[Rfam]
RNA sequence: UAUAUAUUUGGGCAAAACCGGUGAAAACCGGCGACGCAAAGCUAUAGGGACUGUAAAAUGUCAGCCAGUUGCACUU
Numbered sequence: 001u002a003u004a005u006a007u008u009u010g011g012g013c014a015a016a017a018c019c020g021g022u023g024a025a026a027a028c029c030g031g032c033g034a035c036g037c038a039a040a041g042c043u044a045u046a047g048g049g050a051c052u053g054u055a056a057a058a059u060g061u062c063a064g065c066c067a068g069u070u071g072c073a074c075u076u
Stems, first nucleotide, its partner, number of pairs: 012037002018031005040070004047066002049062003
RNA: c-di-GMP-I riboswitch aptamer